[Rfam]
RNA sequence: UAACCGCUGGCGAAAAUCGUGAAUGUUA
Numbered sequence: 001u002a003a004c005c006g007c008u009g010g011c012g013a014a015a016a017u018c019g020u021g022a023a024u025g026u027u028a
Stems, first nucleotide, its partner, number of pairs: 001028004008023001010020004